[Rfam]
RNA: Lysine riboswitch aptamer
RNA sequence: CCCUAGGGUAGAGGAGCCGAAAUUAUUAGUAUUUUUCUCGAGACGCAAUCUAUGAAAGAAAAAGAAAGGAAAAUCGGCCGAAGGGUUAUAUUUGCAAGAUAUAACUCUGGGUAUACAUAGAAUAUAUGUAUAACUGUCACAUAACGUGGAGAGCUACAAGGACG
Numbered sequence: 001c002c003c004u005a006g007g008g009u010a011g012a013g014g015a016g017c018c019g020a021a022a023u024u025a026u027u028a029g030u031a032u033u034u035u036u037c038u039c040g041a042g043a044c045g046c047a048a049u050c051u052a053u054g055a056a057a058g059a060a061a062a063a064g065a066a067a068g069g070a071a072a073a074u075c076g077g078c079c080g081a082a083g084g085g086u087u088a089u090a091u092u093u094g095c096a097a098g099a100u101a102u103a104a105c106u107c108u109g110g111g112u113a114u115a116c117a118u119a120g121a122a123u124a125u126a127u128g129u130a131u132a133a134c135u136g137u138c139a140c141a142u143a144a145c146g147u148g149g150a151g152a153g154c155u156a157c158a159a160g161g162a163c164g
Stems, first nucleotide, its partner, number of pairs: 008157004016078005023071002032063007082108012109135002112132008137149004